[Rfam]
RNA sequence: UGGCUACAAAAUAACUUAUUAUGUAACAACUUUGAGUUACGAUAAUUUCUAUGUUAAUUUACGAUAGUAUAGUAACUCCUUACUAAAUGGUUUACUAUAACGUUAUGGUAAAUACCCCCAUGUGUUAUAGUAAGCCAACUAUCGUAAAUAUAUAUUGACAUUUUCGUAAAUUAGUAUAUAAAAUUAUCAUAAAUGGAGGUGACUACAUAAUAACUUAUUUUGUAGCUG
Number, nucleotide and partner (000 for none) at each position: 001u228002g227003g226004c225005u224006a223007c222008a221009a220010a219011a218012u217013a216014a215015c000016u213017u212018a211019u210020u209021a208022u207023g206024u205025a204026a000027c000028a000029a200030c199031u198032u197033u196034g000035a000036g000037u192038u191039a190040c000041g188042a187043u186044a185045a184046u183047u182048u000049c000050u178051a177052u176053g175054u174055u173056a172057a171058u170059u169060u168061a167062c166063g000064a000065u000066a164067g163068u000069a161070u160071a000072g000073u000074a155075a000076c000077u000078c000079c000080u147081u146082a145083c144084u000085a000086a000087a142088u141089g140090g139091u138092u137093u132094a131095c130096u129097a128098u127099a126100a125101c124102g123103u122104u000105a000106u000107g117108g116109u000110a000111a000112a000113u000114a000115c000116c108117c107118c000119c000120a000121u000122g103123u102124g101125u100126u099127a098128u097129a096130g095131u094132a093133a000134g000135c000136c000137a092138a091139c090140u089141a088142u087143c000144g083145u082146a081147a080148a000149u000150a000151u000152a000153u000154a000155u074156u000157g000158a000159c000160a070161u069162u000163u067164u066165c000166g062167u061168a060169a059170a058171u057172u056173a055174g054175u053176a052177u051178a050179u000180a000181a000182a047183a046184u045185u044186a043187u042188c041189a000190u039191a038192a037193a000194u000195g000196g033197a032198g031199g030200u029201g000202a000203c000204u025205a024206c023207a022208u021209a020210a019211u018212a017213a016214c000215u014216u013217a012218u011219u010220u009221u008222g007223u006224a005225g004226c003227u002228g001
This 228-nucleotide RNA sequence from Miscanthus lutarioriparius belongs to the Rfam family "MIR6217 microRNA precursor family". The family's consensus secondary structure was predicted with RNAalifold. The match comes from Rfam's covariance-model search (175 bits).